The record is a 71-nucleotide RNA sequence from Nannospalax galili, which matches "mir-290 microRNA precursor family" in Rfam.
The literature on the family includes a 2003 paper in Dev Cell by Houbaviy et al., "Embryonic stem cell-specific MicroRNAs".
The family is grouped with related families in Rfam's "mir-290 clan".

RNA sequence: GUGGUACUCAAACUCUGGGGGCACUUUUUUGUGUAUUGGAAGAAAAAGUGCUGCCAGAUUUUGAGUGUUGC
Numbered sequence: 001g002u003g004g005u006a007c008u009c010a011a012a013c014u015c016u017g018g019g020g021g022c023a024c025u026u027u028u029u030u031g032u033g034u035a036u037u038g039g040a041a042g043a044a045a046a047a048g049u050g051c052u053g054c055c056a057g058a059u060u061u062u063g064a065g066u067g068u069u070g071c
Base pairs, nucleotide, nucleotide: 004068005067006066007065008064009063010062011061012060015057016056017055018054020052021051022050023049024048025047027045028044029043
The source organism's lineage runs through Eukaryota, Tetrapoda, Theria, Spalacinae and Nannospalax.
Pairs were carried over by alignment from the consensus structure, which was predicted with RNAalifold.